[Rfam]
RNA sequence: GCCGGUCCUCGGUAGUGGCUCCCGGGACACCGGUCCCGGGCGCUUCGAUCGAAGACCGGC
Numbered sequence: 001g002c003c004g005g006u007c008c009u010c011g012g013u014a015g016u017g018g019c020u021c022c023c024g025g026g027a028c029a030c031c032g033g034u035c036c037c038g039g040g041c042g043c044u045u046c047g048a049u050c051g052a053a054g055a056c057c058g059g060c
Base pairs, nucleotide, nucleotide: 001060002059003058004057005056006055007054009052010051011050012049013048017044018043019042021040022039023038024037025036026035027034028033

Actino-pnp RNA: a 60-nucleotide RNA sequence from Pseudonocardia cypriaca. The family's consensus secondary structure is taken from published work. The organism belongs to Pseudonocardia, within Bacteria.